The record is an 86-nucleotide RNA sequence from Vigna angularis, which matches "mir-160 microRNA precursor family" in Rfam.
The base pairs follow the family's consensus structure, which was predicted with PFOLD.
For this family Rfam cites "Prediction of plant microRNA targets" (Rhoades et al., Cell, 2002).
Gene Ontology terms of the family: miRNA-mediated post-transcriptional gene silencing and RISC complex.
A search with the family's covariance model found it, with a score of 79 bits.
The source organism's lineage runs through Eukaryota, Mesangiospermae, fabids, Fabales and Vigna angularis.
RNA sequence: AUGUGCCUGGCUCCCUGUAUGCCAUUUGCAGAGCUCAUCGAAGCGUCAAUGACCUUCGUAGAUGGCGUAUGAGGAGCCAAGCAUAU
Numbered sequence: 001a002u003g004u005g006c007c008u009g010g011c012u013c014c015c016u017g018u019a020u021g022c023c024a025u026u027u028g029c030a031g032a033g034c035u036c037a038u039c040g041a042a043g044c045g046u047c048a049a050u051g052a053c054c055u056u057c058g059u060a061g062a063u064g065g066c067g068u069a070u071g072a073g074g075a076g077c078c079a080a081g082c083a084u085a086u
Stems, first nucleotide, its partner, number of pairs: 001086006008079007016071009027060003